[Rfam]
Nucleotides: 035
Stems, first nucleotide, its partner, number of pairs: 001035006011025005
Number, partner (000 for none) and nucleotide at each position: 001035a002034u003033u004032a005031a006030u007000a008000a009000c010000c011025g012024a013023g014022g015021u016000c017000g018000a019000g020000a021015a022014c023013c024012u025011c026000u027000u028000u029000a030006a031005u032004u033003a034002a035001u